This 76-nucleotide sequence from Crocodylus porosus belongs to the Rfam family "Mammalian CPEB3 ribozyme".
Rfam 15.1 lists 5,706 matches to the family in 197 species.
The family's consensus secondary structure is taken from published work.
The match comes from Rfam's covariance-model search (41 bits).
The source organism's lineage runs through Eukaryota, Bilateria, Sauropsida, Archelosauria and Crocodylus.
[Rfam]
RNA sequence: ACAGGCUUCUGUAGGCCGCAGCAGAAGCGCUCAUGGCACAGCCCUGUCAGCUUCCAACAGAUCUGUGAAUUCUGCU
Numbered sequence: 001a002c003a004g005g006c007u008u009c010u011g012u013a014g015g016c017c018g019c020a021g022c023a024g025a026a027g028c029g030c031u032c033a034u035g036g037c038a039c040a041g042c043c044c045u046g047u048c049a050g051c052u053u054c055c056a057a058c059a060g061a062u063c064u065g066u067g068a069a070u071u072c073u074g075c076u
Stems, first nucleotide, its partner, number of pairs: 014043003020076007027039001029037001048065003052061002